[Rfam]
RNA sequence: CGGGUGAACUGUGGUUAAGGAACUCGGCAAAAUACCUCCGUAACUUCGGGAUAAGGAGGGCCAAGGCACUUGAAGCCCCUUGCGGGCUAGGGUGAAGUGGCCGCAGAGACCAGGGGAAAGCGACUGUUUACUAAAAACACAGGUCCAUGCGAAGUCGCAAGACGAUGUAUAUGGACUGACGCCUGCCCGGUGCUGGAAGGUUAAGAGGACCGGUUAGUCCGUAAGGGCGAAGCUGAGAAUUUAAGCCCCAGUAAACGGCGGUGGUAACUAUAACCAUCCUAAGGUAGCGAAAUUCCUUGUCGGGUAAGUUCCGACCUGCACGAAUGGCGUAACGACUUUCCUACUGUCUCAACCACAGGCCCG
Numbered sequence: 001c002g003g004g005u006g007a008a009c010u011g012u013g014g015u016u017a018a019g020g021a022a023c024u025c026g027g028c029a030a031a032a033u034a035c036c037u038c039c040g041u042a043a044c045u046u047c048g049g050g051a052u053a054a055g056g057a058g059g060g061c062c063a064a065g066g067c068a069c070u071u072g073a074a075g076c077c078c079c080u081u082g083c084g085g086g087c088u089a090g091g092g093u094g095a096a097g098u099g100g101c102c103g104c105a106g107a108g109a110c111c112a113g114g115g116g117a118a119a120g121c122g123a124c125u126g127u128u129u130a131c132u133a134a135a136a137a138c139a140c141a142g143g144u145c146c147a148u149g150c151g152a153a154g155u156c157g158c159a160a161g162a163c164g165a166u167g168u169a170u171a172u173g174g175a176c177u178g179a180c181g182c183c184u185g186c187c188c189g190g191u192g193c194u195g196g197a198a199g200g201u202u203a204a205g206a207g208g209a210c211c212g213g214u215u216a217g218u219c220c221g222u223a224a225g226g227g228c229g230a231a232g233c234u235g236a237g238a239a240u241u242u243a244a245g246c247c248c249c250a251g252u253a254a255a256c257g258g259c260g261g262u263g264g265u266a267a268c269u270a271u272a273a274c275c276a277u278c279c280u281a282a283g284g285u286a287g288c289g290a291a292a293u294u295c296c297u298u299g300u301c302g303g304g305u306a307a308g309u310u311c312c313g314a315c316c317u318g319c320a321c322g323a324a325u326g327g328c329g330u331a332a333c334g335a336c337u338u339u340c341c342u343a344c345u346g347u348c349u350c351a352a353c354c355a356c357a358g359g360c361c362c363g
Base pairs, nucleotide, nucleotide: 001363002362003361004360009358010357011356012355013354014353015352016351018349019348020347035059036058037057038056039055044049060101061100062099063098077092078091079090080089082087102106114342115341116340117339118338119337120336121334122333125139126138127137142177143176144175145174146173147172148171149170150167154163155162156161180329181328182327183326185259186258187257190256191255192252193251194250195249196248199247200246201245205241206240211235212234213233214232217228218227219226220225260278261277262276263275264274265273279283289316299315300314301313302312303311304310

Description: This 363-nucleotide part of an RNA from Pseudonocardiaceae bacterium YIM PH 21723 belongs to the Rfam family "Bacterial large subunit ribosomal RNA". For this family Rfam cites "Crystal structure of the ribosome at 5.5 A resolution" (Yusupov et al., Science, 2001). The match comes from Rfam's covariance-model search (2824 bits).